[Rfam]
RNA: U7 small nuclear RNA
RNA sequence: AAAAUUUUAUUCUCUUUGAAAUUUGUCUUGUUGGGACCCUUUGUCUAGGCAUUGAGUGUUCCCGU
Numbered sequence: 001a002a003a004a005u006u007u008u009a010u011u012c013u014c015u016u017u018g019a020a021a022u023u024u025g026u027c028u029u030g031u032u033g034g035g036a037c038c039c040u041u042u043g044u045c046u047a048g049g050c051a052u053u054g055a056g057u058g059u060u061c062c063c064g065u
Base pairs, nucleotide, nucleotide: 033062034061035060036059037058039056040055041054042051043050